The record is a 108-nucleotide RNA from Limnoraphis robusta, which matches "Glutamine riboswitch aptamer (glnA leader)" in Rfam.
A reference for the family is Ames and Breaker (2011), "Bacterial aptamers that selectively bind glutamine", RNA Biol.
RNA sequence: AACGUUCAUCUCUCGGAUCUAGAGAACGCUGAUCUCAGUAAAGUCAGGAAAAUCAUCGAGAUCAGAGAGACGGAAGUAGGGAAAUCAUCAUUCCUGAAGGAACGCGCC
Numbered sequence: 001a002a003c004g005u006u007c008a009u010c011u012c013u014c015g016g017a018u019c020u021a022g023a024g025a026a027c028g029c030u031g032a033u034c035u036c037a038g039u040a041a042a043g044u045c046a047g048g049a050a051a052a053u054c055a056u057c058g059a060g061a062u063c064a065g066a067g068a069g070a071c072g073g074a075a076g077u078a079g080g081g082a083a084a085u086c087a088u089c090a091u092u093c094c095u096g097a098a099g100g101a102a103c104g105c106g107c108c
Stems, first nucleotide, its partner, number of pairs: 003104005009070005073105001079095005
The source organism's lineage runs through Bacteria, Bacillati, Cyanophyceae, Oscillatoriales and Limnoraphis robusta. Gene Ontology term of the family: glutamine binding.